Rfam assigns this 108-nucleotide RNA sequence from Canis lupus to the family "mir-1260b microRNA precursor family".

[Rfam]
RNA sequence: GUGGCGGCUGCUCCCCGUCGAUCCCACCACCGCCACCAUUAUUGCCACUGCUGAGCAGGUGCUGCUGGUGGUGAUGGUGAUAGUCUGGCGGGGGUGGUGGGGCUGUGG
Numbered sequence: 001g002u003g004g005c006g007g008c009u010g011c012u013c014c015c016c017g018u019c020g021a022u023c024c025c026a027c028c029a030c031c032g033c034c035a036c037c038a039u040u041a042u043u044g045c046c047a048c049u050g051c052u053g054a055g056c057a058g059g060u061g062c063u064g065c066u067g068g069u070g071g072u073g074a075u076g077g078u079g080a081u082a083g084u085c086u087g088g089c090g091g092g093g094g095u096g097g098u099g100g101g102g103c104u105g106u107g108g
Stems, first nucleotide, its partner, number of pairs: 007106002010103005015097004022093004027088002029084002032081001034079012054066005

Taxonomically the source falls in Canis lupus (Eukaryota, Chordata, Dipnotetrapodomorpha, Laurasiatheria). Rfam links the family to the GO terms RISC complex and miRNA-mediated post-transcriptional gene silencing. The match comes from Rfam's covariance-model search (101 bits).